Source information:
This 61-nucleotide RNA sequence from Pristionchus pacificus belongs to the Rfam family "mir-8364 microRNA precursor family". Pairs were carried over by alignment from the consensus structure, which was predicted with RNAalifold. Gene Ontology terms of the family: miRNA-mediated post-transcriptional gene silencing and RISC complex. The family has 13 seed sequences and 3,320 matches in Rfam 15.1.
[Rfam]
RNA sequence: UCUUCAUUUCACGCACUCUCUCGACCGGUUGAGUGACGAGAGAGUGCGCAAAAUGAAGAGA
Numbered sequence: 001u002c003u004u005c006a007u008u009u010c011a012c013g014c015a016c017u018c019u020c021u022c023g024a025c026c027g028g029u030u031g032a033g034u035g036a037c038g039a040g041a042g043a044g045u046g047c048g049c050a051a052a053a054u055g056a057a058g059a060g061a
Base pairs, nucleotide, nucleotide: 001059002058003057004056005055006054007053012048013047014046015045016044017043019041020040021039022038